[Rfam]
RNA: c-di-AMP riboswitch aptamer (ydaO/yuaA leader)
RNA sequence: GUAAACAAAUCGCUGAGUUCCAGUGGAAGCGGAGAACCCAAUCAGUCGGGGUGAAUCGUGGAUAAAACCAUGUAGGGAUCUGACCUACUCCCGAACCCGUCAGCUAACUCCGUAAGCGUGUAGGUGCCAAAAA
Numbered sequence: 001g002u003a004a005a006c007a008a009a010u011c012g013c014u015g016a017g018u019u020c021c022a023g024u025g026g027a028a029g030c031g032g033a034g035a036a037c038c039c040a041a042u043c044a045g046u047c048g049g050g051g052u053g054a055a056u057c058g059u060g061g062a063u064a065a066a067a068c069c070a071u072g073u074a075g076g077g078a079u080c081u082g083a084c085c086u087a088c089u090c091c092c093g094a095a096c097c098c099g100u101c102a103g104c105u106a107a108c109u110c111c112g113u114a115a116g117c118g119u120g121u122a123g124g125u126g127c128c129a130a131a132a133a
Base pairs, nucleotide, nucleotide: 011118012117013116014115018028019027020026029113030112031111032110033109034108039048049098050097051096057072058071059070060069075092076091077090078089